Background
This 72-nucleotide sequence from Shimwellia blattae belongs to the Rfam family "Fluoride riboswitch aptamer (crcB RNA motif)". The source organism's lineage runs through Bacteria, Pseudomonadota, Enterobacteriaceae, Shimwellia and Shimwellia blattae.
RNA sequence: AUUCCGGGCGGAGAUGGCAUUCCUCCCGUGUAACAAACCGCCUUUGCGAAGGCUGAUGAUGCCUGCAUGAUU
Numbered sequence: 001a002u003u004c005c006g007g008g009c010g011g012a013g014a015u016g017g018c019a020u021u022c023c024u025c026c027c028g029u030g031u032a033a034c035a036a037a038c039c040g041c042c043u044u045u046g047c048g049a050a051g052g053c054u055g056a057u058g059a060u061g062c063c064u065g066c067a068u069g070a071u072u
Stems, first nucleotide, its partner, number of pairs: 010026004016063006040053004

The family's consensus secondary structure is taken from published work.